[Rfam]
The record is a 96-nucleotide RNA from Citricoccus muralis, which matches "SAM riboswitch aptamer (S box leader)" in Rfam. Taxonomically the source falls in Citricoccus (Bacteria, Bacillati, Actinomycetota, Actinomycetes).
RNA sequence: CAACCAUCCAGAGCGGCCGAGAGAUCUGGCUCAGUGACGCCGCAGCAACCUCCUGUAUGACCCACGGGAAGGUGCUCAUGCCAGAACCGAUGGAGC
Numbered sequence: 001c002a003a004c005c006a007u008c009c010a011g012a013g014c015g016g017c018c019g020a021g022a023g024a025u026c027u028g029g030c031u032c033a034g035u036g037a038c039g040c041c042g043c044a045g046c047a048a049c050c051u052c053c054u055g056u057a058u059g060a061c062c063c064a065c066g067g068g069a070a071g072g073u074g075c076u077c078a079u080g081c082c083a084g085a086a087c088c089g090a091u092g093g094a095g096c
Base pairs, nucleotide, nucleotide: 004093005092006091007090008089013043014042015041016040017039021032022031023030026084027083028082029081044076045075046074047073049072050071051068052067053066080088